[Rfam]
RNA sequence: GGAGAGGUGCCGGAGUGGUCGAACGGGCCUGACUCGAAAUCAGGUGAACUCGCAAGAGUUCCGUGGGUUCGAAUCCCACCUUCUCCG
Numbered sequence: 001g002g003a004g005a006g007g008u009g010c011c012g013g014a015g016u017g018g019u020c021g022a023a024c025g026g027g028c029c030u031g032a033c034u035c036g037a038a039a040u041c042a043g044g045u046g047a048a049c050u051c052g053c054a055a056g057a058g059u060u061c062c063g064u065g066g067g068u069u070c071g072a073a074u075c076c077c078a079c080c081u082u083c084u085c086c087g
Stems, first nucleotide, its partner, number of pairs: 001086007010026003028044005063079005
Rfam assigns this 87-nucleotide RNA sequence from Magnetovirga frankeli to the family "tRNA". From the family's description: Transfer RNA (tRNA) molecules are approximately 80 nucleotides in length. Rfam classes the family as a transfer RNA. The base pairs follow the family's consensus structure, which is taken from published work.